Overview
Shown here is a 159-nucleotide RNA sequence from Miscanthus lutarioriparius, a member of the family "MIR2118 microRNA precursor family". The base pairs follow the family's consensus structure, which was predicted with RNAalifold. A search with the family's covariance model found it, with a score of 126 bits.
RNA sequence: ACCAGGAAGAGGAAGAAAGAGAUAGUCUAAGAGCAAUGGGAAUGGGAACAUGGAGAAAAGCAUGUACACUUCCCCAACCGGAGGUGAAUCUUGUAUCUUGCUUUCCCAGUGCCUCCCAUUCCUAUCGUUCUUAGGUUCUCCUUCCUCUUCCGUUUAUCU
Number, nucleotide and partner (000 for none) at each position: 001a000002c000003c000004a000005g000006g000007a000008a000009g150010a149011g148012g147013a146014a000015g144016a143017a142018a000019g000020a000021g140022a139023u000024a000025g000026u135027c134028u133029a132030a131031g130032a129033g128034c127035a000036a000037u124038g123039g122040g121041a120042a119043u118044g117045g116046g115047a114048a000049c111050a110051u109052g000053g107054a000055g106056a000057a104058a103059a102060g101061c100062a000063u000064g000065u000066a000067c000068a000069c000070u000071u000072c000073c000074c000075c000076a000077a000078c000079c000080g000081g000082a000083g000084g000085u000086g000087a000088a000089u000090c000091u000092u000093g000094u000095a000096u000097c000098u000099u000100g061101c060102u059103u058104u057105c000106c055107c053108a000109g051110u050111g049112c000113c000114u047115c046116c045117c044118a043119u042120u041121c040122c039123u038124a037125u000126c000127g034128u033129u032130c031131u030132u029133a028134g027135g026136u000137u000138c000139u022140c021141c000142u017143u016144c015145c000146u013147c012148u011149u010150c009151c000152g000153u000154u000155u000156a000157u000158c000159u000

NCBI's taxonomy places the organism under Eukaryota, Euphyllophyta, Panicoideae, Saccharinae, Miscanthus. On this family, see Xue et al., Nucleic Acids Res 2009: "Characterization and expression profiles of miRNAs in rice seeds".